A member of the RNA family "Alphaproteobacterial ar14" from Rhodobacteraceae bacterium PD-2, 129 nucleotides long.
The literature on the family includes a 2012 paper in RNA Biol by del Val et al., "A survey of sRNA families in alpha-proteobacteria".
Smr14C2 was renamed NfeR1 (Nodule Formation Efficiency RNA) highly expressed in salt stress and during the symbiotic interaction on legume roots.
Pairs were carried over by alignment from the consensus structure.
NCBI's taxonomy places the organism under Bacteria, Pseudomonadota, Alphaproteobacteria, Rhodobacterales, Paracoccaceae.

[Rfam]
Nucleotides: 129
Base pairs, nucleotide, nucleotide: 007041008040009039012036013035014034015033016032017031046078047077048076049075050074051073052072053071054070055069093124094123095122096121099118100117101116102115
Number, partner (000 for none) and nucleotide at each position: 001000a002000g003000a004000g005000a006000u007041u008040g009039c010000a011000g012036g013035g014034c015033u016032c017031c018000u019000c020000u021000c022000c023000u024000c025000c026000u027000c028000c029000c030000u031017g032016g033015a034014g035013c036012c037000a038000g039009g040008c041007a042000u043000a044000c045000g046078c047077g048076g049075c050074g051073g052072c053071a054070c055069c056000u057000c058000u059000c060000c061000u062000c063000c064000u065000c066000c067000c068000u069055g070054g071053u072052g073051c074050c075049g076048c077047c078046g079000c080000a081000c082000a083000c084000c085000a086000u087000a088000c089000g090000g091000u092000u093124c094123g095122a096121g097000g098000c099118c100117c101116c102115u103000c104000u105000c106000c107000u108000c109000c110000u111000c112000c113000c114000u115102g116101g117100g118099g119000c120000g121096c122095u123094c124093g125000u126000a127000a128000a129000c